Notes:
A member of the RNA family "A. fumigatus sRNA Afu_254" from Paracoccidioides brasiliensis, 153 nucleotides long. It is annotated as a small RNA. The family has 6 seed sequences and 185 matches in Rfam 15.1. For this family Rfam cites "Small ncRNA transcriptome analysis from Aspergillus fumigatus suggests a novel mechanism for regulation of protein synthesis" (Jochl et al., Nucleic Acids Res, 2008).
RNA sequence: UUCGAAAGUCUCAGAAUCCAAAGAUAACGAAUUUUCUAAACAAAUUCACCACCAAAACCACCCAUUAAAAAUGUCUCCCUGCUCCUGCAACUGCUGCUCCGGCGACUGCAACUCCUGCAGCUGCAAAAGCUGCUCUGUAAGUUGGACAUGACG
Numbered sequence: 001u002u003c004g005a006a007a008g009u010c011u012c013a014g015a016a017u018c019c020a021a022a023g024a025u026a027a028c029g030a031a032u033u034u035u036c037u038a039a040a041c042a043a044a045u046u047c048a049c050c051a052c053c054a055a056a057a058c059c060a061c062c063c064a065u066u067a068a069a070a071a072u073g074u075c076u077c078c079c080u081g082c083u084c085c086u087g088c089a090a091c092u093g094c095u096g097c098u099c100c101g102g103c104g105a106c107u108g109c110a111a112c113u114c115c116u117g118c119a120g121c122u123g124c125a126a127a128a129g130c131u132g133c134u135c136u137g138u139a140a141g142u143u144g145g146a147c148a149u150g151a152c153g
Stems, first nucleotide, its partner, number of pairs: 080104004087097003108133003117124002